[Rfam]
Description
Metazoan signal recognition particle RNA: a 304-nucleotide sequence from Pan paniscus. Rfam's curators write: The signal recognition particle (SRP) is a universally conserved ribonucleoprotein. It is involved in the co-translational targeting of proteins to membranes.
RNA sequence: GCUAGGUGGGGUGGUGCGCACGCCUGUAGUACCAGCUACUUGGGAGGCUGUGGCAGGAAGAUCACUUAAGUCCAGGAGUUCUGGGAUGUAGUGCACUAUGUGGAUUAGGUGUCCAUCCACACUAGGUUCAGCAUCAAUAUGGUUAAUUCCUGGGAGCAGGGGUCCACCAGGUUGCCUAAGGAGGGGUGAACCAGCCCAGGUCAGAAAUGGAGCAGGUCAAAACUCCCAUGCUGAUCAGUAGUGGGGUCGCACCUGUAUAGCCACUGCACUCCAGCCUGGGCAACAUAGCGAGAACCUGUCUCUA
Numbered sequence: 001g002c003u004a005g006g007u008g009g010g011g012u013g014g015u016g017c018g019c020a021c022g023c024c025u026g027u028a029g030u031a032c033c034a035g036c037u038a039c040u041u042g043g044g045a046g047g048c049u050g051u052g053g054c055a056g057g058a059a060g061a062u063c064a065c066u067u068a069a070g071u072c073c074a075g076g077a078g079u080u081c082u083g084g085g086a087u088g089u090a091g092u093g094c095a096c097u098a099u100g101u102g103g104a105u106u107a108g109g110u111g112u113c114c115a116u117c118c119a120c121a122c123u124a125g126g127u128u129c130a131g132c133a134u135c136a137a138u139a140u141g142g143u144u145a146a147u148u149c150c151u152g153g154g155a156g157c158a159g160g161g162g163u164c165c166a167c168c169a170g171g172u173u174g175c176c177u178a179a180g181g182a183g184g185g186g187u188g189a190a191c192c193a194g195c196c197c198a199g200g201u202c203a204g205a206a207a208u209g210g211a212g213c214a215g216g217u218c219a220a221a222a223c224u225c226c227c228a229u230g231c232u233g234a235u236c237a238g239u240a241g242u243g244g245g246g247u248c249g250c251a252c253c254u255g256u257a258u259a260g261c262c263a264c265u266g267c268a269c270u271c272c273a274g275c276c277u278g279g280g281c282a283a284c285a286u287a288g289c290g291a292g293a294a295c296c297u298g299u300c301u302c303u304a
Stems, first nucleotide, its partner, number of pairs: 001048003004025005010019001030045001032043001050302001052300006062291002065288002070281007081274005087268007096260006107254006113245002120243005126236001128234007135174004140169004146163007175181002183226005194217003201210003